[Rfam]
RNA sequence: UCAAACAUUGCGGGAGAGACCACCUUGAGCGGUGGCGCCGAAGGGGUAUCGCCCCAGAAACUCUCAGGCAAAAGAACCGCAAUGUCGUU
Numbered sequence: 001u002c003a004a005a006c007a008u009u010g011c012g013g014g015a016g017a018g019a020c021c022a023c024c025u026u027g028a029g030c031g032g033u034g035g036c037g038c039c040g041a042a043g044g045g046g047u048a049u050c051g052c053c054c055c056a057g058a059a060a061c062u063c064u065c066a067g068g069c070a071a072a073a074g075a076a077c078c079g080c081a082a083u084g085u086c087g088u089u
Stems, first nucleotide, its partner, number of pairs: 006084008020035004037069003040065002044063003051055001